Overview
A member of the RNA family "Small nucleolar RNA SNORA32" from Zapornia atra, 123 nucleotides long. The family has 9 seed sequences and 615 matches in Rfam 15.1. ACA32 is a member of the H/ACA class of snoRNA that guide the sites of modification of uridines to pseudouridines. It scores 61 bits against the family's covariance model.
[Rfam]
RNA sequence: UGGUCAUUACCAAGGCUGCUGGGAUGUUGCUGUUUCUGGUGAGCCGUGGACAUGACCAUAAAGCAAGUCCAUCAGACUUGUGCUUUGCCAUGUGAUGUGGCACUAAGUCUGCUGGGAAUAAAG
Numbered sequence: 001u002g003g004u005c006a007u008u009a010c011c012a013a014g015g016c017u018g019c020u021g022g023g024a025u026g027u028u029g030c031u032g033u034u035u036c037u038g039g040u041g042a043g044c045c046g047u048g049g050a051c052a053u054g055a056c057c058a059u060a061a062a063g064c065a066a067g068u069c070c071a072u073c074a075g076a077c078u079u080g081u082g083c084u085u086u087g088c089c090a091u092g093u094g095a096u097g098u099g100g101c102a103c104u105a106a107g108u109c110u111g112c113u114g115g116g117a118a119u120a121a122a123g
Stems, first nucleotide, its partner, number of pairs: 003056005010049003029044003068116004075109004086102003